The family of this 215-nucleotide RNA sequence from Paenibacillus antarcticus is "c-di-AMP riboswitch aptamer (ydaO/yuaA leader)". The organism belongs to Paenibacillus, within Bacteria.
RNA sequence: GAACCAGUCUCGCUGAAUCUCCGAACGUUGGAGAACGGGGGAACCAAUACGAAAUGGAACUGAUGAAGUGUUCAGCAUAUGUCGUAUUUGAUUUCUUUUAUUGGGUCUUUGGGGUGAAUUUAAAGGCAUCCGCCAUGAGCGGUUGACCUAAGAUAGGGCGACUCUCUUUCGUCCAAACCCGACAGCUAACCUCGUAAGCGUUAUGAAGAGAGGCA
Numbered sequence: 001g002a003a004c005c006a007g008u009c010u011c012g013c014u015g016a017a018u019c020u021c022c023g024a025a026c027g028u029u030g031g032a033g034a035a036c037g038g039g040g041g042a043a044c045c046a047a048u049a050c051g052a053a054a055u056g057g058a059a060c061u062g063a064u065g066a067a068g069u070g071u072u073c074a075g076c077a078u079a080u081g082u083c084g085u086a087u088u089u090g091a092u093u094u095c096u097u098u099u100a101u102u103g104g105g106u107c108u109u110u111g112g113g114g115u116g117a118a119u120u121u122a123a124a125g126g127c128a129u130c131c132g133c134c135a136u137g138a139g140c141g142g143u144u145g146a147c148c149u150a151a152g153a154u155a156g157g158g159c160g161a162c163u164c165u166c167u168u169u170c171g172u173c174c175a176a177a178c179c180c181g182a183c184a185g186c187u188a189a190c191c192u193c194g195u196a197a198g199c200g201u202u203a204u205g206a207a208g209a210g211a212g213g214c215a
Base pairs, nucleotide, nucleotide: 011200012199013198014197018034019033020032021031022030035195036194037193038192039191040190045111046110112180113179114178120153121152156174157173158172159171